[Rfam]
RNA: mir-9242 microRNA precursor family
RNA sequence: GGCCUCCCUCUGCUGAGCAAUCGAUCAUGGAGCUCCAUGAUCGAUUGCUCCAAAGAGGGAGGUC
Numbered sequence: 001g002g003c004c005u006c007c008c009u010c011u012g013c014u015g016a017g018c019a020a021u022c023g024a025u026c027a028u029g030g031a032g033c034u035c036c037a038u039g040a041u042c043g044a045u046u047g048c049u050c051c052a053a054a055g056a057g058g059g060a061g062g063u064c
Stems, first nucleotide, its partner, number of pairs: 001064011015050016